RNA: mir-8799 microRNA precursor family
Organism: Canis lupus
RNA sequence: GGGGGGAGCGCUGGAUCUUGGGCUGUGUCCCCGGCGCCCUGUGCUCUCCAGCCUGCGCUGUUGGAGUCGUGCUCCCCGCGAAGCUCCUUCUU
Numbered sequence: 001g002g003g004g005g006g007a008g009c010g011c012u013g014g015a016u017c018u019u020g021g022g023c024u025g026u027g028u029c030c031c032c033g034g035c036g037c038c039c040u041g042u043g044c045u046c047u048c049c050a051g052c053c054u055g056c057g058c059u060g061u062u063g064g065a066g067u068c069g070u071g072c073u074c075c076c077c078g079c080g081a082a083g084c085u086c087c088u089u090c091u092u
Base pairs, nucleotide, nucleotide: 001092002091003090004089005088006087010084011083012081014079017078020075021074022073024071025070026069027068028065029064031063032060033059034058035057036056037055041053043052044051045050